Background
SAM-I/IV (S-adenosyl methionine) riboswitch aptamer: a 110-nucleotide RNA from Methylobacterium haplocladii. Lineage of the source: Bacteria > Alphaproteobacteria > Hyphomicrobiales > Methylobacteriaceae > Methylobacterium. The match comes from Rfam's covariance-model search (54 bits).
RNA sequence: CUCCAGCAUCACGAGUUGAGCCGACGCUCAACGCCAACCUGCCGCUCCCGGCAAGGUGGCGCCCUGAUCAGCCAGGGGAUGCGGCCGGUCCGGCAACCAGGGGGACUCCG
Numbered sequence: 001c002u003c004c005a006g007c008a009u010c011a012c013g014a015g016u017u018g019a020g021c022c023g024a025c026g027c028u029c030a031a032c033g034c035c036a037a038c039c040u041g042c043c044g045c046u047c048c049c050g051g052c053a054a055g056g057u058g059g060c061g062c063c064c065u066g067a068u069c070a071g072c073c074a075g076g077g078g079a080u081g082c083g084g085c086c087g088g089u090c091c092g093g094c095a096a097c098c099a100g101g102g103g104g105a106c107u108c109c110g
Stems, first nucleotide, its partner, number of pairs: 006082005015032001017030005033060003038056003041052003046105004084094004